[Rfam]
RNA sequence: GGUCCAAUGAUGAGAACUAAUAUGGUCUCGAAGAGCGAUGAUGACCUAAAAAUCGUGCUCAUAUAGGAUUCGCUGAGGGCC
Numbered sequence: 001g002g003u004c005c006a007a008u009g010a011u012g013a014g015a016a017c018u019a020a021u022a023u024g025g026u027c028u029c030g031a032a033g034a035g036c037g038a039u040g041a042u043g044a045c046c047u048a049a050a051a052a053u054c055g056u057g058c059u060c061a062u063a064u065a066g067g068a069u070u071c072g073c074u075g076a077g078g079g080c081c
Stems, first nucleotide, its partner, number of pairs: 001081004005075002008072002
RNA: Small nucleolar RNA SNORD115